[Rfam]
RNA sequence: UGGCUGUAGCUACAUACAAGAGAUUCAAUCAGAGAAGUUUUACUGGCCGCUUGUUGUUUAUUUUGAUCAGCAAAUCUGCUUACCGAGCUUCUCACAUAU
Numbered sequence: 001u002g003g004c005u006g007u008a009g010c011u012a013c014a015u016a017c018a019a020g021a022g023a024u025u026c027a028a029u030c031a032g033a034g035a036a037g038u039u040u041u042a043c044u045g046g047c048c049g050c051u052u053g054u055u056g057u058u059u060a061u062u063u064u065g066a067u068c069a070g071c072a073a074a075u076c077u078g079c080u081u082a083c084c085g086a087g088c089u090u091c092u093c094a095c096a097u098a099u
Base pairs, nucleotide, nucleotide: 032093033092034091035090036089037088038087039086045080046079047078049076051074052073053071054070055069056068

Small nucleolar RNA snoR109: a 99-nucleotide RNA sequence from Camellia sinensis. Its family is annotated with RNA processing and nucleolus in the Gene Ontology. NCBI's taxonomy places the organism under Eukaryota, Streptophyta, Pentapetalae, Ericales, Camellia sinensis. For this family Rfam cites "Experimental RNomics: identification of 140 candidates for small non-messenger RNAs in the plant Arabidopsis thaliana" (Marker et al., Curr Biol, 2002). The family's consensus secondary structure was predicted with WAR. It scores 62 bits against the family's covariance model. Rfam classes the family as an H/ACA-box small nucleolar RNA.